[Rfam]
RNA: Actinobacteria sRNA Ms_IGR-5
RNA sequence: ACACAGGAAAGGAGGUGAUCCGACUGAUGAUCGAUCAGCGGACGUGUGAGGUGGCUGCGGCCUAGGCCGUCCACCGCUGUGCGGCCGGCCUCCGGCCAAUCCAGAGCAGUCACCCGGCCCGUGGGCUCGUCGGACUCGUCCGACCGGCGCCCUUCGCCAGCAGCCGGCUGGUGAGGGGAGCAGCCCACGGGCCGUUCCUG
Numbered sequence: 001a002c003a004c005a006g007g008a009a010a011g012g013a014g015g016u017g018a019u020c021c022g023a024c025u026g027a028u029g030a031u032c033g034a035u036c037a038g039c040g041g042a043c044g045u046g047u048g049a050g051g052u053g054g055c056u057g058c059g060g061c062c063u064a065g066g067c068c069g070u071c072c073a074c075c076g077c078u079g080u081g082c083g084g085c086c087g088g089c090c091u092c093c094g095g096c097c098a099a100u101c102c103a104g105a106g107c108a109g110u111c112a113c114c115c116g117g118c119c120c121g122u123g124g125g126c127u128c129g130u131c132g133g134a135c136u137c138g139u140c141c142g143a144c145c146g147g148c149g150c151c152c153u154u155c156g157c158c159a160g161c162a163g164c165c166g167g168c169u170g171g172u173g174a175g176g177g178g179a180g181c182a183g184c185c186c187a188c189g190g191g192c193c194g195u196u197c198c199u200g
Stems, first nucleotide, its partner, number of pairs: 015058003019054001060097001062095002065092002068088001071084002115194013129148005